[Rfam]
RNA sequence: GCCGAGGUAGCUCAGUUGGUAGAGCACAGCCCUGAAAAGGCUGGUGUCGACAGUUCAAUUCUGUCCCUCGGCA
Numbered sequence: 001g002c003c004g005a006g007g008u009a010g011c012u013c014a015g016u017u018g019g020u021a022g023a024g025c026a027c028a029g030c031c032c033u034g035a036a037a038a039g040g041c042u043g044g045u046g047u048c049g050a051c052a053g054u055u056c057a058a059u060u061c062u063g064u065c066c067c068u069c070g071g072c073a
Stems, first nucleotide, its partner, number of pairs: 001072007010025004027043005049065005